[Rfam]
RNA: tRNA
RNA sequence: GCUGCUUGAAUGGUUUCAGUGUGGGCUCAUUUCCCAUUACUCAAAAGUUCGAUUCUUUUAAGCGGCC
Numbered sequence: 001g002c003u004g005c006u007u008g009a010a011u012g013g014u015u016u017c018a019g020u021g022u023g024g025g026c027u028c029a030u031u032u033c034c035c036a037u038u039a040c041u042c043a044a045a046a047g048u049u050c051g052a053u054u055c056u057u058u059u060a061a062g063c064g065g066c067c
Stems, first nucleotide, its partner, number of pairs: 001066007011018002021037005043059005